[Rfam]
RNA sequence: ACUAAGAAAAGGCAAAACUACUGUAAAGUAGUGACGCAAAGUUUCAGGUCUUAUAUUUUGAGAUGGCUGGGCUCCCAUA
Numbered sequence: 001a002c003u004a005a006g007a008a009a010a011g012g013c014a015a016a017a018c019u020a021c022u023g024u025a026a027a028g029u030a031g032u033g034a035c036g037c038a039a040a041g042u043u044u045c046a047g048g049u050c051u052u053a054u055a056u057u058u059u060g061a062g063a064u065g066g067c068u069g070g071g072c073u074c075c076c077a078u079a
Stems, first nucleotide, its partner, number of pairs: 012037002017032006040073004045069003048064003
RNA: c-di-GMP-I riboswitch aptamer